[Rfam]
RNA sequence: GAGUUGUGAUGGAUGGCGAGGCUAAUUCUAAAAGAAGCAGCCGUAGCGAAAGCGAUUACUCGCACAGCAAUGGAGGAGUAACGUAAUAAAUGCGUUUAGUCAUCUGUGGCAGACCCGAAGCCACUCGAUCUAUACCUGAGCAGGUUGAAGUUUAGCGAAAGCUAGAUGGAGGACCGAACCAGUUCUGAUGUGCAAAUCGUUUGGAUGACUUGGGUAUAGGGGUUAAAGGCUAAUCUAGAGUGGCAAUAGCGGGUU
Number, nucleotide and partner (000 for none) at each position: 001g000002a000003g000004u000005u111006g110007u109008g000009a107010u106011g105012g104013a103014u102015g101016g100017c099018g000019a000020g042021g041022c040023u039024a000025a000026u036027u035028c034029u033030a000031a000032a000033a029034g028035a027036a026037g000038c000039a023040g022041c021042c020043g000044u000045a000046g053047c052048g000049a000050a000051a000052g047053c046054g000055a000056u000057u000058a079059c078060u077061c076062g000063c000064a000065c072066a071067g000068c000069a000070a000071u066072g065073g000074a000075g000076g061077a060078g059079u058080a000081a000082c094083g093084u092085a091086a000087u000088a000089a000090a000091u085092g084093c083094g082095u000096u000097u000098a000099g017100u016101c015102a014103u013104c012105u011106g010107u009108g000109g007110c006111a005112g000113a000114c253115c252116c000117g250118a000119a000120g000121c243122c242123a241124c240125u239126c238127g000128a000129u000130c219131u218132a217133u216134a215135c214136c213137u212138g211139a210140g209141c207142a000143g175144g174145u173146u172147g000148a000149a000150g167151u166152u165153u164154a163155g162156c161157g000158a000159a000160a000161g156162c155163u154164a153165g152166a151167u150168g000169g000170a000171g000172g146173a145174c144175c143176g000177a000178a000179c204180c203181a202182g201183u000184u000185c199186u000187g198188a197189u000190g000191u000192g000193c000194a000195a000196a000197u188198c187199g185200u000201u182202u181203g180204g179205a000206u000207g141208a000209c140210u139211u138212g137213g136214g135215u134216a133217u132218a131219g130220g000221g231222g230223u229224u000225a000226a000227a000228g000229g223230c222231u221232a000233a000234u000235c000236u000237a000238g126239a125240g124241u123242g122243g121244c000245a000246a000247u000248a000249g000250c117251g000252g115253g114254u000255u000
Notes: Shown here is a 255-nucleotide part of an RNA from Ferroplasma acidarmanus, a member of the family "Archaeal large subunit ribosomal RNA". Rfam's curators put it in the seed alignment. Its Rfam clan is "LSU clan".